A member of the RNA family "mir-302 microRNA precursor family" from Myotis davidii, 69 nucleotides long.
The base pairs follow the family's consensus structure, which was predicted with RNAalifold.
Clan: mir-290 clan.
The organism belongs to Myotis, within Eukaryota.
RNA sequence: CCACCACUCAAACGUGGAUGUACUUGCUUUGGAACCAGACGAGUAAGUGCUUCCAUGUUUCAGUGAUGG
Numbered sequence: 001c002c003a004c005c006a007c008u009c010a011a012a013c014g015u016g017g018a019u020g021u022a023c024u025u026g027c028u029u030u031g032g033a034a035c036c037a038g039a040c041g042a043g044u045a046a047g048u049g050c051u052u053c054c055a056u057g058u059u060u061c062a063g064u065g066a067u068g069g
Base pairs, nucleotide, nucleotide: 001069002068003067005065006064007063008062010060011059012058013057014056015055016054017053018052020050021049022048023047024046025045026044027043028042